The record is an 83-nucleotide sequence from Brenthis ino, which matches "mir-275 microRNA precursor family" in Rfam. The family's consensus secondary structure was predicted with RNAalifold. Taxonomically the source falls in Brenthis (Eukaryota, Hexapoda, Neolepidoptera, Nymphalidae). The match comes from Rfam's covariance-model search (67 bits). On this family, see Cao et al., Insect Biochem Mol Biol 2008: "Identification of conserved microRNAs in Bombyx mori (silkworm) and regulation of fibroin L chain production by microRNAs in heterologous system".
[Rfam]
RNA sequence: AGAGCGGUGGCGUCGCGCGCUACUCUGGCGCCGGGGCUGUUCAACGAGUCAGGUACCUGAAGUAGCGCGCGAGGCUGCCGCUC
Numbered sequence: 001a002g003a004g005c006g007g008u009g010g011c012g013u014c015g016c017g018c019g020c021u022a023c024u025c026u027g028g029c030g031c032c033g034g035g036g037c038u039g040u041u042c043a044a045c046g047a048g049u050c051a052g053g054u055a056c057c058u059g060a061a062g063u064a065g066c067g068c069g070c071g072a073g074g075c076u077g078c079c080g081c082u083c
Base pairs, nucleotide, nucleotide: 009076010075011074014071016069017068018067019066020065021064022063030054031053032052035050036049037048038047